Nucleotides: 132
Stems, first nucleotide, its partner, number of pairs: 021041008049070006079095006097112006
Number, partner (000 for none) and nucleotide at each position: 001000u002000u003000g004000g005000u006000u007000a008000g009000a010000a011000c012000u013000c014000g015000u016000a017000u018000c019000a020000g021041g022040u023039u024038g025037u026036c027035c028034u029000g030000c031000a032000a033000c034028g035027g036026g037025g038024c039023a040022a041021c042000a043000c044000u045000u046000c047000c048000a049070g050069c051068u052067c053066g054065c055000c056000a057000c058000g059000c060000c061000g062000g063000c064000a065054g066053c067052g068051a069050g070049c071000g072000c073000a074000u075000a076000a077000c078000c079095g080094g081093c082092a083091g084090a085000a086000c087000g088000a089000c090084u091083c092082u093081g094080c095079c096000c097112g098111g099110c100109c101108u102107c103000a104000g105000c106000c107102g108101a109100g110099g111098c112097c113000g114000a115000c116000g117000g118000g119000a120000c121000a122000u123000u124000a125000c126000a127000g128000u129000c130000a131000a132000c
The family of this 132-nucleotide RNA sequence from Pseudomonas sp. 1239 is "rmf RNA". The match comes from Rfam's covariance-model search (118 bits). The source organism's lineage runs through Bacteria, Pseudomonadota, Pseudomonadales, Pseudomonadaceae and Pseudomonas. The family's consensus secondary structure is taken from published work.